[Rfam]
Annotation
Rfam assigns this 35-nucleotide RNA sequence to the family "DUF805b RNA".
Nucleotides: 035
Base pairs, nucleotide, nucleotide: 002021003020004019005018010034011033012032
Number, partner (000 for none) and nucleotide at each position: 001000u002021a003020g004019g005018a006000g007000u008000a009000u010034g011033c012032u013000g014000a015000a016000a017000a018005u019004c020003c021002u022000a023000a024000a025000a026000a027000g028000a029000g030000u031000a032012g033011g034010u035000g
Rfam classes the family as a cis-regulatory element. Rfam's curators put it in the seed alignment. The family is grouped with related families in Rfam's "DUF805 clan". Pairs were carried over by alignment from the consensus structure, which is taken from published work.